[Rfam]
RNA: 6S / SsrS RNA
RNA sequence: CGUUCCCUGGGGUGUUUGCCAGUCGUUAUCGUCCCUCGAGCCUAUGCGCAGUACCCAGGGGGCCAUAUGCUAGCCGGACCCGUGUGCAUGUCCGUGCGUCGGAAAGCCUGACGGUUCGGCUGCGGCCACCCACCUUGAACCACUGGGUUCAAGGGCCAGAACGACAGCGGCACUCUGGGGAACCU
Number, nucleotide and partner (000 for none) at each position: 001c000002g183003u182004u181005c180006c179007c178008u177009g176010g175011g174012g173013u172014g171015u170016u000017u169018g168019c167020c000021a000022g000023u000024c000025g000026u000027u000028a000029u000030c000031g000032u000033c155034c154035c153036u000037c000038g150039a149040g148041c147042c146043u000044a000045u000046g000047c000048g000049c000050a000051g000052u000053a000054c000055c000056c000057a000058g131059g130060g129061g000062g126063c125064c124065a000066u122067a121068u000069g120070c000071u000072a000073g000074c119075c118076g117077g116078a115079c114080c113081c000082g000083u000084g000085u000086g107087c106088a000089u000090g000091u103092c102093c101094g100095u000096g000097c000098g000099u000100c094101g093102g092103a091104a000105a000106g087107c086108c000109u000110g000111a000112c000113g080114g079115u078116u077117c076118g075119g074120c069121u067122g066123c000124g064125g063126c062127c000128a000129c060130c059131c058132a000133c000134c000135u000136u000137g000138a000139a000140c000141c000142a000143c000144u000145g000146g042147g041148u040149u039150c038151a000152a000153g035154g034155g033156c000157c000158a000159g000160a000161a000162c000163g000164a000165c000166a000167g019168c018169g017170g015171c014172a013173c012174u011175c010176u009177g008178g007179g006180g005181a004182a003183c002184c000185u000